[Rfam]
RNA sequence: AUAAAUAUGUGGUAGGUGAGGCUACUACAGGGAUAUGGGUUGCUGCCGCAAAAUAGUGGAGACACUAUGCGUUGGUUAGCAGACUGCGUCGGUUCAAGGCGUAGUCUAAUGCAAUUUCAUGGUCAACAAACCACGCCCUGUAAAGCUAAAGCUUGGAUGACAGACAAUCUUU
Numbered sequence: 001a002u003a004a005a006u007a008u009g010u011g012g013u014a015g016g017u018g019a020g021g022c023u024a025c026u027a028c029a030g031g032g033a034u035a036u037g038g039g040u041u042g043c044u045g046c047c048g049c050a051a052a053a054u055a056g057u058g059g060a061g062a063c064a065c066u067a068u069g070c071g072u073u074g075g076u077u078a079g080c081a082g083a084c085u086g087c088g089u090c091g092g093u094u095c096a097a098g099g100c101g102u103a104g105u106c107u108a109a110u111g112c113a114a115u116u117u118c119a120u121g122g123u124c125a126a127c128a129a130a131c132c133a134c135g136c137c138c139u140g141u142a143a144a145g146c147u148a149a150a151g152c153u154u155g156g157a158u159g160a161c162a163g164a165c166a167a168u169c170u171u172u
Stems, first nucleotide, its partner, number of pairs: 005168002010163001011158001013097001015153003020147003026142007039115005045076004055066004082106004088100003
Description
Shown here is a 172-nucleotide RNA sequence from Dielma fastidiosa, a member of the family "M-box riboswitch aptamer (ykoK leader)". Lineage of the source: Bacteria > Bacillota > Erysipelotrichia > Erysipelotrichales > Dielma. Rfam describes the family as follows. M-box riboswitch, also know as ykoK leader is described as a metaloregulatory RNA that sense divalent metals and function as a genetic control element of genes related to divalent metal transport in bacteria. A reference for the family is Barrick et al. (2004), "New RNA motifs suggest an expanded scope for riboswitches in bacterial genetic control", Proc Natl Acad Sci U S A.